[Rfam]
RNA sequence: AUGGAAUGGUGAUAUUUUCCCCAGAUUAUCAAUGCUGAAUAAACUGUGCGAUCUUUCUCUUUUGAGAAUUCAAGCCAGGAUUCUGAUCCGU
Numbered sequence: 001a002u003g004g005a006a007u008g009g010u011g012a013u014a015u016u017u018u019c020c021c022c023a024g025a026u027u028a029u030c031a032a033u034g035c036u037g038a039a040u041a042a043a044c045u046g047u048g049c050g051a052u053c054u055u056u057c058u059c060u061u062u063u064g065a066g067a068a069u070u071c072a073a074g075c076c077a078g079g080a081u082u083c084u085g086a087u088c089c090g091u
Stems, first nucleotide, its partner, number of pairs: 001091005
RNA: Small nucleolar RNA Z103